The record is a 62-nucleotide RNA from Salmo salar, which matches "mir-221 microRNA precursor family" in Rfam. The family's consensus secondary structure was predicted with RNAalifold. The organism belongs to Salmo, within Eukaryota. Rfam's curators put it in the seed alignment. Rfam 15.1 lists 1,797 matches to the family in 643 species.
RNA sequence: UGCUCAGUAGGCAGUGUAGAUCCUGUAUAAUGAUCAGCAGCUACAUCUGGCUACUGGGUCUC
Numbered sequence: 001u002g003c004u005c006a007g008u009a010g011g012c013a014g015u016g017u018a019g020a021u022c023c024u025g026u027a028u029a030a031u032g033a034u035c036a037g038c039a040g041c042u043a044c045a046u047c048u049g050g051c052u053a054c055u056g057g058g059u060c061u062c
Base pairs, nucleotide, nucleotide: 004057005056006055007054008053009052012049013048014046015045016044017043018042019041023040024039025038026037